[Rfam]
RNA sequence: ACGGAGGCCACCGAAAAUCCGGAAAAGAGUAGGCG
Number, nucleotide and partner (000 for none) at each position: 001a000002c021003g020004g019005a018006g000007g000008c000009c000010a000011c033012c032013g000014a000015a000016a000017a000018u005019c004020c003021g002022g000023a000024a000025a000026a000027g000028a000029g000030u000031a000032g012033g011034c000035g000

A member of the RNA family "DUF805b RNA", 35 nucleotides long.
Pairs were carried over by alignment from the consensus structure, which is taken from published work.
By type it is a cis-regulatory element.